[Rfam]
RNA sequence: UCGAAGCGCGGCUAGGGUUCCGGCCUCUUUGUCGAGGUGACUGGUCCGAGAGCCGCCGGCCUCGCGAAGGCGCGGCUCCACGGAGGGACAAAAGCCCGGGAGGA
Numbered sequence: 001u002c003g004a005a006g007c008g009c010g011g012c013u014a015g016g017g018u019u020c021c022g023g024c025c026u027c028u029u030u031g032u033c034g035a036g037g038u039g040a041c042u043g044g045u046c047c048g049a050g051a052g053c054c055g056c057c058g059g060c061c062u063c064g065c066g067a068a069g070g071c072g073c074g075g076c077u078c079c080a081c082g083g084a085g086g087g088a089c090a091a092a093a094g095c096c097c098g099g100g101a102g103g104a
Base pairs, nucleotide, nucleotide: 008056009055010054011053012052015047016046020044021043022041023038024037025036026035027034058077059076060075061074063072064071065070079099081102085097086096087095
A member of the RNA family "Guanidine-I riboswitch aptamer" from Sulfurisoma sediminicola, 104 nucleotides long. The match comes from Rfam's covariance-model search (88 bits). The pairing is the family consensus, mapped onto this sequence. Rfam 15.1 lists 1,509 matches to the family in 1,281 species.